[Rfam]
RNA sequence: UGAUCUGGACGUAGAGCGCGUCCAGGGUAAAUGAAAGAAAGCUCACUGAGA
Number, nucleotide and partner (000 for none) at each position: 001u000002g000003a000004u000005c000006u024007g023008g022009a021010c020011g019012u000013a000014g044015a043016g042017c041018g000019c011020g010021u009022c008023c007024a006025g000026g000027g000028u000029a000030a000031a000032u000033g000034a000035a000036a000037g000038a000039a000040a000041g017042c016043u015044c014045a000046c000047u000048g000049a000050g000051a000
RNA: 6A RNA